[Rfam]
RNA sequence: GAUCGGCACGUCGCUAUAGCGACGUGCCGAUCGACCACGGCGGUAUAUUUUAAUCUGCAGAACCUGCAUUAGCCACUAUAAU
Dot-bracket structure: ((((.(((((((((....))))))))).))))(..(...(((......................)))....).)........